[Rfam]
RNA sequence: GAGAAAUGAGGAUAAUUAAUGGUCUUAAGUUUUAUUAAUGAAGAUUUCAGAUCCAACUCUGAUCUCACUGCAGUG
Numbered sequence: 001g002a003g004a005a006a007u008g009a010g011g012a013u014a015a016u017u018a019a020u021g022g023u024c025u026u027a028a029g030u031u032u033u034a035u036u037a038a039u040g041a042a043g044a045u046u047u048c049a050g051a052u053c054c055a056a057c058u059c060u061g062a063u064c065u066c067a068c069u070g071c072a073g074u075g
Stems, first nucleotide, its partner, number of pairs: 001066004
The record is a 75-nucleotide RNA from Acipenser ruthenus, which matches "Small nucleolar RNA SNORD19" in Rfam. The base pairs follow the family's consensus structure. Rfam classes the family as a C/D-box small nucleolar RNA. A search with the family's covariance model found it, with a score of 42 bits. NCBI's taxonomy places the organism under Eukaryota, Opisthokonta, Craniata, Acipenseroidei, Acipenser. Rfam links the family to the GO terms RNA processing and nucleolus.